Description:
Shown here is a 78-nucleotide sequence from Kryptolebias marmoratus, a member of the family "mir-9/mir-79 microRNA precursor family". On this family, see Lagos-Quintana et al., Science 2001: "Identification of novel genes coding for small expressed RNAs". The family has 214 seed sequences and 5,647 matches in Rfam 15.1. The family's consensus secondary structure was predicted with RNAalifold. Taxonomically the source falls in Kryptolebias (Eukaryota, Gnathostomata, Cyprinodontiformes, Aplocheiloidei).
RNA sequence: CUGUUUUUAUCUUUGGUUAUCUAGCUGUAUGAGUAUUAAACACCUGUCAUAAAGCUAGAUAACCGAAAGUAGGAAUGA
Numbered sequence: 001c002u003g004u005u006u007u008u009a010u011c012u013u014u015g016g017u018u019a020u021c022u023a024g025c026u027g028u029a030u031g032a033g034u035a036u037u038a039a040a041c042a043c044c045u046g047u048c049a050u051a052a053a054g055c056u057a058g059a060u061a062a063c064c065g066a067a068a069g070u071a072g073g074a075a076u077g078a
Base pairs, nucleotide, nucleotide: 002077003076004075005074007072008071009070010069012067013066014065015064016063017062018061019060020059021058022057023056024055025054026053028051029050030049031048032047